[Rfam]
RNA sequence: CGCGCUCCACACAGAUUAUAUCUGAAUUGAGGCCAUCCAACUGAAUCAGUGAUGUAACACCAGUAGUUGAGACUAAUAGGGAUAUUAGUUGUCAAUUACACAAAUGGUGU
Numbered sequence: 001c002g003c004g005c006u007c008c009a010c011a012c013a014g015a016u017u018a019u020a021u022c023u024g025a026a027u028u029g030a031g032g033c034c035a036u037c038c039a040a041c042u043g044a045a046u047c048a049g050u051g052a053u054g055u056a057a058c059a060c061c062a063g064u065a066g067u068u069g070a071g072a073c074u075a076a077u078a079g080g081g082a083u084a085u086u087a088g089u090u091g092u093c094a095a096u097u098a099c100a101c102a103a104a105u106g107g108u109g110u
Stems, first nucleotide, its partner, number of pairs: 012024005034054003038051001057110005063099008072089006
RNA: COG3943 RNA